This 112-nucleotide RNA sequence from Sphingopyxis bauzanensis belongs to the Rfam family "TPP riboswitch aptamer (THI element)". NCBI's taxonomy places the organism under Bacteria, Pseudomonadati, Alphaproteobacteria, Sphingopyxidaceae, Sphingopyxis. The match comes from Rfam's covariance-model search (68 bits).
RNA sequence: UUGUCAUCCCCGGGGAGCCUGCCGCGCAAACGCAGGUUGAGAGCGGAAUACACCGCGACCCGUUGAACCUGAUCCGGAUAAUACCGGCGGAGGGAGGGUCGGCGUUCCCCAA
Number, nucleotide and partner (000 for none) at each position: 001u000002u000003g000004u000005c000006a000007u000008c098009c097010c096011c062012g061013g060014g059015g000016a000017g037018c036019c035020u034021g033022c000023c000024g000025c000026g000027c000028a000029a000030a000031c000032g000033c021034a020035g019036g018037u017038u000039g000040a000041g000042a000043g000044c055045g054046g053047a000048a000049u000050a000051c000052a000053c046054c045055g044056c000057g000058a000059c014060c013061c012062g011063u000064u000065g000066a000067a000068c093069c092070u091071g000072a000073u000074c087075c086076g085077g084078a000079u000080a000081a000082u000083a000084c077085c076086g075087g074088c000089g000090g000091a070092g069093g068094g000095a000096g010097g009098g008099u000100c000101g000102g000103c000104g000105u000106u000107c000108c000109c000110c000111a000112a000